[Rfam]
RNA sequence: CAACAAGGGUCCUCGGCUAAAACCGCCACGUCCUGUGGCAACGUCGACGCACCCACAUCCUGUGGG
Numbered sequence: 001c002a003a004c005a006a007g008g009g010u011c012c013u014c015g016g017c018u019a020a021a022a023c024c025g026c027c028a029c030g031u032c033c034u035g036u037g038g039c040a041a042c043g044u045c046g047a048c049g050c051a052c053c054c055a056c057a058u059c060c061u062g063u064g065g066g
Base pairs, nucleotide, nucleotide: 011049013047014046015045016044017043025039026038027037028036029035052066053065054064055063056062
A member of the RNA family "Bacillaceae-1 RNA" from Lederbergia lenta, 66 nucleotides long. Taxonomically the source falls in Lederbergia (Bacteria, Bacillati, Bacillota, Bacilli).